[Rfam]
RNA: Small nucleolar RNA SNORD103/SNORD85
Organism: Ictidomys tridecemlineatus
Nucleotides: 084
Base pairs, nucleotide, nucleotide: 001084002083003082004081005080006079
Number, partner (000 for none) and nucleotide at each position: 001084u002083c003082u004081g005080g006079c007000a008000a009000u010000g011000a012000u013000g014000a015000c016000c017000c018000a019000c020000u021000u022000g023000c024000c025000c026000u027000c028000a029000c030000u031000g032000a033000g034000a035000a036000c037000g038000g039000a040000g041000u042000u043000c044000a045000g046000u047000a048000a049000u050000g051000a052000g053000a054000a055000u056000c057000u058000u059000u060000g061000u062000u063000a064000c065000g066000g067000a068000c069000u070000c071000a072000a073000u074000u075000c076000u077000g078000a079006g080005c081004c082003a083002g084001a